[Rfam]
RNA sequence: AUCCCAUGAUGUGGACACUUCCGCAGCAUAUUCUUAAACCUAUUCCAGGCUUCAUCAAAGUUCUUGGAAUCAUCCUGACGAAAGACAGAUAUGUCAUGCUUGAGUUU
Numbered sequence: 001a002u003c004c005c006a007u008g009a010u011g012u013g014g015a016c017a018c019u020u021c022c023g024c025a026g027c028a029u030a031u032u033c034u035u036a037a038a039c040c041u042a043u044u045c046c047a048g049g050c051u052u053c054a055u056c057a058a059a060g061u062u063c064u065u066g067g068a069a070u071c072a073u074c075c076u077g078a079c080g081a082a083a084g085a086c087a088g089a090u091a092u093g094u095c096a097u098g099c100u101u102g103a104g105u106u107u
Base pairs, nucleotide, nucleotide: 001107004104005102006101058073060071